[Rfam]
RNA sequence: GCGGCGGUGAUGCACCCAACAUGCCAUCUGAGCGCCCGUGCUGAGACCCAGAGGCUGUUUCUGAGCCG
Numbered sequence: 001g002c003g004g005c006g007g008u009g010a011u012g013c014a015c016c017c018a019a020c021a022u023g024c025c026a027u028c029u030g031a032g033c034g035c036c037c038g039u040g041c042u043g044a045g046a047c048c049c050a051g052a053g054g055c056u057g058u059u060u061c062u063g064a065g066c067c068g
Base pairs, nucleotide, nucleotide: 005068006067007066008065
RNA: Small nucleolar RNA SNORD95